The family of this 110-nucleotide sequence from Streptomyces tirandamycinicus is "Streptomyces RNA 4115". Rfam classes the family as a small RNA. The literature on the family includes a 2011 paper in RNA Biol by Vockenhuber et al., "Deep sequencing-based identification of small non-coding RNAs in Streptomyces coelicolor". The pairing is the family consensus, mapped onto this sequence. Rfam describes the family as follows. Identified by deep sequencing of transcriptome at the end of exponential growth phase. Sequencing size consistent with notrthern blot size. Streptomyces specific.
RNA sequence: GCGUGGGUCGGCCCAUUGGCCAGGGAUCCAAUGGGCUGGGGGACACCGCCGCCUCAAUCCCCGCGGGCGGCGGACCGGUCCGGGAGGCGGCUGCCGUCUCCCGGACCGAG
Numbered sequence: 001g002c003g004u005g006g007g008u009c010g011g012c013c014c015a016u017u018g019g020c021c022a023g024g025g026a027u028c029c030a031a032u033g034g035g036c037u038g039g040g041g042g043a044c045a046c047c048g049c050c051g052c053c054u055c056a057a058u059c060c061c062c063g064c065g066g067g068c069g070g071c072g073g074a075c076c077g078g079u080c081c082g083g084g085a086g087g088c089g090g091c092u093g094c095c096g097u098c099u100c101c102c103g104g105a106c107c108g109a110g
Stems, first nucleotide, its partner, number of pairs: 002108001006076003009038010039044001046073009077107013